The family of this 92-nucleotide RNA from Streptomyces sp. HGB0020 is "Streptomyces RNA 3202".
[Rfam]
RNA sequence: CCACGUCCCGACGCACCACCCCCCCGGCGCCGGGACCUUCCCAGAGUCGGGCUCCGGCGCCAUCCCCCCGAGCGCCGGGGCCCGGCUCCUUU
Numbered sequence: 001c002c003a004c005g006u007c008c009c010g011a012c013g014c015a016c017c018a019c020c021c022c023c024c025c026g027g028c029g030c031c032g033g034g035a036c037c038u039u040c041c042c043a044g045a046g047u048c049g050g051g052c053u054c055c056g057g058c059g060c061c062a063u064c065c066c067c068c069c070g071a072g073c074g075c076c077g078g079g080g081c082c083c084g085g086c087u088c089c090u091u092u
Base pairs, nucleotide, nucleotide: 005036006035007034008033009032010031012029013028014027044088045087046086047085048084049083050082051081052080053079055077056076057075058074059073060072

Lineage of the source: Bacteria > Bacillati > Actinomycetota > Kitasatosporales > Streptomyces. A search with the family's covariance model found it, with a score of 70 bits.